About this RNA: The record is a 92-nucleotide RNA from Tropicimonas sp. IMCC6043, which matches "Rhodo-rpoB RNA" in Rfam. The family's consensus secondary structure is taken from published work. Rfam classes the family as a cis-regulatory element.
RNA sequence: AAGUCGAGAGGGGUGCUCUGGGAGGUGCCUCGGGAAUGGACUUGCGCCGACUGCAAUCGGGCACCGACUCCUGCGGCCCAGGCGGGAUCGUG
Numbered sequence: 001a002a003g004u005c006g007a008g009a010g011g012g013g014u015g016c017u018c019u020g021g022g023a024g025g026u027g028c029c030u031c032g033g034g035a036a037u038g039g040a041c042u043u044g045c046g047c048c049g050a051c052u053g054c055a056a057u058c059g060g061g062c063a064c065c066g067a068c069u070c071c072u073g074c075g076g077c078c079c080a081g082g083c084g085g086g087a088u089c090g091u092g
Base pairs, nucleotide, nucleotide: 001043002042003041004040005039010031011030012029013028014027015026016025017024065090066089067088069087070086071085072084073083